[Rfam]
RNA sequence: GUGUCCCCUAGAGUUCCUCUGAGCACUUCAUUGGGAAUUCUCGAUCAAAUGAAAGAGUUUUAUCAUUCCUACUGAAGUGUUUGGGGGAACUCCCGGUGUCAU
Numbered sequence: 001g002u003g004u005c006c007c008c009u010a011g012a013g014u015u016c017c018u019c020u021g022a023g024c025a026c027u028u029c030a031u032u033g034g035g036a037a038u039u040c041u042c043g044a045u046c047a048a049a050u051g052a053a054a055g056a057g058u059u060u061u062a063u064c065a066u067u068c069c070u071a072c073u074g075a076a077g078u079g080u081u082u083g084g085g086g087g088a089a090c091u092c093c094c095g096g097u098g099u100c101a102u
Stems, first nucleotide, its partner, number of pairs: 005098001007096002011092010022082002024079007032071004
RNA: mir-395 microRNA precursor family
Organism: Salix brachista